This 158-nucleotide RNA sequence from Glycine max belongs to the Rfam family "MIR4371 microRNA precursor family". Pairs were carried over by alignment from the consensus structure, which was predicted with RNAalifold. The source organism's lineage runs through Eukaryota, Spermatophyta, Gunneridae, fabids and Glycine subgen. Soja. Rfam 15.1 lists 321 matches to the family in 4 species. Gene Ontology terms of the family: miRNA-mediated post-transcriptional gene silencing and RISC complex.

[Rfam]
RNA sequence: UCAUUAAGUGAUGAUGUGGUAGACAAAGUGUGACAUCAUCACUUCUUUUUACAAACAUCUCAUUAUCAUGUCAUCACCUUCAAUGAUGUGGCAAUCACGUGUCAGUGAUUGAACGUGAUGACGUGACACUUCAUCUUUCAUAUCAUCACUUAACAGAA
Numbered sequence: 001u002c003a004u005u006a007a008g009u010g011a012u013g014a015u016g017u018g019g020u021a022g023a024c025a026a027a028g029u030g031u032g033a034c035a036u037c038a039u040c041a042c043u044u045c046u047u048u049u050u051a052c053a054a055a056c057a058u059c060u061c062a063u064u065a066u067c068a069u070g071u072c073a074u075c076a077c078c079u080u081c082a083a084u085g086a087u088g089u090g091g092c093a094a095u096c097a098c099g100u101g102u103c104a105g106u107g108a109u110u111g112a113a114c115g116u117g118a119u120g121a122c123g124u125g126a127c128a129c130u131u132c133a134u135c136u137u138u139c140a141u142a143u144c145a146u147c148a149c150u151u152a153a154c155a156g157a158a
Stems, first nucleotide, its partner, number of pairs: 001156001004153016021136003026131006033124002036121007044113001046111001049108004055102004070087005